[Rfam]
RNA sequence: GCACUGGCGGGGAGUCAUGCCGCUGUGUCCCUUUGCUGGAUCUUGGAGGAGAGCGAUGUCAGAGAUCCAGACAGUGC
Numbered sequence: 001g002c003a004c005u006g007g008c009g010g011g012g013a014g015u016c017a018u019g020c021c022g023c024u025g026u027g028u029c030c031c032u033u034u035g036c037u038g039g040a041u042c043u044u045g046g047a048g049g050a051g052a053g054c055g056a057u058g059u060c061a062g063a064g065a066u067c068c069a070g071a072c073a074g075u076g077c
Stems, first nucleotide, its partner, number of pairs: 001077006009032004037069008
RNA: CyVA-1 RNA